This 395-nucleotide RNA sequence from Pseudoblastomonas halimionae belongs to the Rfam family "Bacterial RNase P class A". NCBI's taxonomy places the organism under Bacteria, Pseudomonadati, Alphaproteobacteria, Erythrobacteraceae, Pseudoblastomonas. The family is grouped with related families in Rfam's "RNaseP clan".
Nucleotides: 395
Base pairs, nucleotide, nucleotide: 001391002390003389004388005387006386007385008384009383010382011380012327013326014325015324016323017322018321020036021035023033024032025031041378042377043376045375046374047373048372049371050218051217052216053215058260059259062214063213064212066211067210068082069081070080071079072078083097084095085094086093087092098209099208103207104206105203106202107201120149121148122145123144124143127140128139130137157175158174159173160172161171162170176198177196178195179194180193181192182191183190184189222284223283224282225281232275233274234273235272236271237270252266253265254264256262291310292309293308294307295306296305297304298303
Number, partner (000 for none) and nucleotide at each position: 001391c002390c003389a004388g005387g006386g007385g008384g009383c010382c011380g012327g013326g014325c015324a016323g017322c018321c019000g020036c021035g022000u023033u024032g025031c026000u027000u028000u029000u030000u031025g032024c033023a034000c035021c036020g037000a038000g039000g040000a041378a042377a043376g044000u045375c046374c047373g048372g049371g050218c051217u052216c053215c054000g055000u056000g057000a058260a059259a060000c061000a062214a063213g064212g065000g066211u067210g068082g069081c070080g071079g072078g073000u074000a075000a076000c077000g078072c079071c080070c081069g082068c083097c084095g085094a086093g087092a088000g089000c090000a091000a092087u093086c094085u095084u096000a097083g098209g099208g100000a101000c102000a103207g104206u105203g106202c107201c108000a109000c110000a111000g112000a113000g114000a115000g116000c117000a118000a119000a120149c121148c122145g123144c124143c125000g126000a127140u128139g129000g130137c131000c132000c133000a134000a135000c136000g137130g138000g139128c140127a141000c142000a143124g144123g145122c146000a147000a148121g149120g150000c151000u152000g153000a154000a155000a156000g157175g158174g159173u160172g161171c162170g163000g164000u165000a166000a167000g168000a169000g170162c171161g172160c173159a174158c175157c176198g177196g178195g179194g180193g181192c182191c183190u184189g185000g186000u187000a188000a189184c190183a191182g192181g193180u194179c195178u196177c197000g198176c199000a200000a201107g202106g203105u204000a205000a206104a207103c208099c209098c210067c211066a212064c213063c214062u215053g216052g217051a218050g219000c220000a221000a222284g223283g224282c225281c226000g227000a228000a229000u230000a231000g232275g233274g234273g235272c236271a237270c238000c239000g240000c241000g242000c243000c244000g245000a246000a247000a248000g249000g250000u251000a252266g253265g254264g255000g256262c257000g258000u259059u260058u261000c262256g263000a264254c265253c266252c267000g268000a269000g270237g271236u272235g273234c274233c275232c276000g277000g278000g279000u280000u281225g282224g283223c284222u285000g286000c287000u288000c289000g290000a291310g292309c293308g294307g295306c296305g297304g298303a299000g300000c301000a302000a303298u304297c305296c306295g307294u308293c309292g310291c311000c312000u313000a314000g315000a316000u317000g318000a319000a320000u321018g322017g323016c324015u325014g326013c327012c328000c329000c330000c331000g332000c333000g334000c335000g336000g337000c338000c339000g340000g341000u342000g343000c344000c345000u346000u347000u348000g349000g350000c351000a352000u353000a354000c355000c356000g357000c358000g359000c360000g361000c362000g363000g364000g365000a366000c367000a368000g369000a370000a371049c372048c373047c374046g375045g376043c377042u378041u379000a380011c381000a382010g383009g384008c385007c386006c387005c388004c389003u390002g391001g392000c393000a394000a395000u
By type it is a ribozyme. The match comes from Rfam's covariance-model search (292 bits). The base pairs follow the family's consensus structure, which is taken from published work.